[Rfam]
Nucleotides: 075
Stems, first nucleotide, its partner, number of pairs: 014043003020075007027039003047064006
Number, partner (000 for none) and nucleotide at each position: 001000g002000u003000u004000g005000c006000a007000a008000g009000u010000u011000u012000g013000a014043u015042g016041c017000c018000a019000c020075a021074g022073c023072a024071g025070a026069a027039g028038c029037a030000c031000u032000u033000a034000u035000g036000g037029u038028g039027c040000u041016g042015c043014a044000u045000g046000u047064c048063a049062g050061a051060u052059u053000c054000c055000a056000g057000c058000a059052a060051a061050u062049c063048u064047g065000u066000g067000a068000a069026u070025u071024c072023u073022g074021c075020u
Record summary:
A member of the RNA family "Mammalian CPEB3 ribozyme" from Alligator mississippiensis, 75 nucleotides long.